[Rfam]
Shown here is a 204-nucleotide RNA from Jaculus jaculus, a member of the family "Small nucleolar RNA SNORA73 family". By type it is an H/ACA-box small nucleolar RNA. Taxonomically the source falls in Jaculus (Eukaryota, Dipnotetrapodomorpha, Mammalia, Myomorpha). U17 (SNORA73A and SNORA73B) also known as E1 belongs to the H/ACA class of small nucleolar RNAs (snoRNAs). Vertebrate U17 is intron-encoded and ranges in length from 200-230 nucleotides, longer than most snoRNAs. Clan: snR30-U17 clan. The base pairs follow the family's consensus structure, which is taken from published work.

RNA sequence: CCAACGUGAAUAUCCUGGGAGGUCACUCUCCCUGGGCUCUGUCCAGGUGGUGUAGGGAAGCACAGGGUUUUGCCCCAUGGUGUACAGUCCCUUACCACAAUGUUGGAGACAAAGCUGGGCCUUGAGACUGCAUCUGCAUAUUCCUAGGACUUCCCAGAGUCCUUUGGAUGAUGACUGAGGAGAUAAGCCAAGCAGGAAACAAUC
Numbered sequence: 001c002c003a004a005c006g007u008g009a010a011u012a013u014c015c016u017g018g019g020a021g022g023u024c025a026c027u028c029u030c031c032c033u034g035g036g037c038u039c040u041g042u043c044c045a046g047g048u049g050g051u052g053u054a055g056g057g058a059a060g061c062a063c064a065g066g067g068u069u070u071u072g073c074c075c076c077a078u079g080g081u082g083u084a085c086a087g088u089c090c091c092u093u094a095c096c097a098c099a100a101u102g103u104u105g106g107a108g109a110c111a112a113a114g115c116u117g118g119g120c121c122u123u124g125a126g127a128c129u130g131c132a133u134c135u136g137c138a139u140a141u142u143c144c145u146a147g148g149a150c151u152u153c154c155c156a157g158a159g160u161c162c163u164u165u166g167g168a169u170g171a172u173g174a175c176u177g178a179g180g181a182g183a184u185a186a187g188c189c190a191a192g193c194a195g196g197a198a199a200c201a202a203u204c
Stems, first nucleotide, its partner, number of pairs: 001106007008044001010042003014036003018029004047098004056091002059088001060085001062083003065078001133196005139190001150182004155177001159169004